[Rfam]
RNA sequence: AAUAGAAGAAUGACAAAUCAAAAUUUUCCUCUUGAUAUUCAACCUUUUCCUCCUGAAAAAAUUCAAAUCCAACUAUAAAUGCUGAAUACCAGGAGAAAAGUUUAAUUUGUCAUUCUCCUAUU
Numbered sequence: 001a002a003u004a005g006a007a008g009a010a011u012g013a014c015a016a017a018u019c020a021a022a023a024u025u026u027u028c029c030u031c032u033u034g035a036u037a038u039u040c041a042a043c044c045u046u047u048u049c050c051u052c053c054u055g056a057a058a059a060a061a062u063u064c065a066a067a068u069c070c071a072a073c074u075a076u077a078a079a080u081g082c083u084g085a086a087u088a089c090c091a092g093g094a095g096a097a098a099a100g101u102u103u104a105a106u107u108u109g110u111c112a113u114u115c116u117c118c119u120a121u122u
Stems, first nucleotide, its partner, number of pairs: 001122005007116012020103003025099003029095006036088004041083001045079003
RNA: MIR7504 microRNA precursor family